[Rfam]
RNA: msiK RNA
RNA sequence: AGGUUUCGCUCUCCACUACGGAUCGUCGGGCACGUACCUGCCCGUGGAAAGGAAUAUGU
Numbered sequence: 001a002g003g004u005u006u007c008g009c010u011c012u013c014c015a016c017u018a019c020g021g022a023u024c025g026u027c028g029g030g031c032a033c034g035u036a037c038c039u040g041c042c043c044g045u046g047g048a049a050a051g052g053a054a055u056a057u058g059u
Stems, first nucleotide, its partner, number of pairs: 009051002012048004027044006